[Rfam]
Nucleotides: 093
Base pairs, nucleotide, nucleotide: 010033011032014029044081045080047078048077049076051074057072058071059070060069
Number, partner (000 for none) and nucleotide at each position: 001000g002000u003000a004000a005000c006000c007000c008000u009000c010033u011032g012000u013000u014029u015000u016000u017000g018000a019000c020000g021000u022000u023000c024000g025000u026000g027000c028000a029014a030000u031000u032011c033010g034000a035000c036000c037000a038000u039000u040000u041000u042000g043000g044081g045080g046000g047078c048077g049076c050000c051074g052000c053000u054000a055000a056000c057072g058071c059070u060069g061000u062000c063000c064000a065000c066000a067000a068000g069060c070059g071058g072057c073000g074051u075000a076049g077048c078047g079000a080045c081044c082000a083000c084000u085000u086000g087000a088000g089000g090000c091000u092000g093000u
This 93-nucleotide RNA sequence from Caulobacter vibrioides belongs to the Rfam family "caulobacter sRNA CC0734". The base pairs follow the family's consensus structure. A reference for the family is Landt et al. (2008), "Small non-coding RNAs in Caulobacter crescentus", Mol Microbiol. The organism belongs to Caulobacter vibrioides, within Bacteria.